[Rfam]
RNA sequence: GGCUCAGGACGACCUGACCGCCUUCGCUUCCCCGGCCGGGACGACCCGC
Numbered sequence: 001g002g003c004u005c006a007g008g009a010c011g012a013c014c015u016g017a018c019c020g021c022c023u024u025c026g027c028u029u030c031c032c033c034g035g036c037c038g039g040g041a042c043g044a045c046c047c048g049c
Stems, first nucleotide, its partner, number of pairs: 002019001004017005037048004
Annotation:
Rfam assigns this 49-nucleotide RNA sequence from Gemmobacter aquatilis to the family "Guanidine-II riboswitch aptamer (mini-ykkC)". A search with the family's covariance model found it, with a score of 32 bits. Simpler in structure and has fewer highly conserved nucleotide positions than the ykkC-yxkD leader.